The record is a 128-nucleotide sequence from Populus trichocarpa, which matches "U11 spliceosomal RNA" in Rfam. For this family Rfam cites "Identification of an evolutionarily divergent U11 small nuclear ribonucleoprotein particle in Drosophila" (Schneider et al., Proc Natl Acad Sci U S A, 2004). It is annotated as a spliceosomal small nuclear RNA. Its family is annotated with U11 snRNP, mRNA 5'-splice site recognition and pre-mRNA 5'-splice site binding in the Gene Ontology. The source organism's lineage runs through Eukaryota, Viridiplantae, Streptophytina, Euphyllophyta and Populus.

[Rfam]
RNA sequence: UAAAAGGGUCGGUUGGCUAAAUAUGCCACACUCGCCCUAGUCUGGUGAGUGCCGUAUGGCUAUCAAGACAUAUGGCUGACAUAAUUUGUGGGACAGCACAGGGUUGGCUCGCCUGGCCGACCCUCCGU
Number, nucleotide and partner (000 for none) at each position: 001u000002a000003a000004a000005a000006g000007g000008g080009u079010c078011g077012g076013u000014u028015g027016g026017c025018u000019a000020a000021a000022u000023a000024u000025g017026c016027c015028a014029c051030a050031c049032u048033c047034g046035c045036c044037c000038u000039a000040g000041u000042c000043u000044g036045g035046u034047g033048a032049g031050u030051g029052c075053c074054g073055u072056a071057u070058g069059g000060c000061u000062a000063u000064c000065a000066a000067g000068a000069c058070a057071u056072a055073u054074g053075g052076c012077u011078g010079a009080c008081a000082u000083a000084a000085u000086u000087u000088g000089u000090g000091g000092g000093a000094c000095a000096g000097c000098a000099c000100a124101g123102g122103g121104u120105u119106g118107g117108c116109u115110c000111g000112c000113c000114u000115g109116g108117c107118c106119g105120a104121c103122c102123c101124u100125c000126c000127g000128u000